[Rfam]
RNA: Small nucleolar RNA ZL8
RNA sequence: UUGGAGUGGUAAUGAUGAUCUGGUUGGACUAGAGUCUCUGAGCUUUUCUCUGAGGAUCUUUGAACCCACCUGAUCCACCCUCA
Dot-bracket structure: ..((.((((........(((.(((.((...(((.((((.(((.....))).)))).))).....)).))).)))))).).)).